[Rfam]
RNA sequence: GCAUUAUGAUGAUCAAUUAUAAACCAUCCGGUUAAUUAUGUGAUGAUUAUAACCUCCUACUCAUUCUGA
Numbered sequence: 001g002c003a004u005u006a007u008g009a010u011g012a013u014c015a016a017u018u019a020u021a022a023a024c025c026a027u028c029c030g031g032u033u034a035a036u037u038a039u040g041u042g043a044u045g046a047u048u049a050u051a052a053c054c055u056c057c058u059a060c061u062c063a064u065u066c067u068g069a
Stems, first nucleotide, its partner, number of pairs: 006064004027046002029040001

The record is a 69-nucleotide RNA from Daucus carota, which matches "Small nucleolar RNA Z105" in Rfam. On this family, see Chen et al., Nucleic Acids Res 2003: "The high diversity of snoRNAs in plants: identification and comparative study of 120 snoRNA genes from Oryza sativa". Gene Ontology terms of the family: nucleolus and RNA processing. The family's RNA type in Rfam is C/D-box small nucleolar RNA. Taxonomically the source falls in Daucus carota (Eukaryota, Streptophyta, Embryophyta, eudicotyledons). The family's consensus secondary structure was predicted with CMfinder.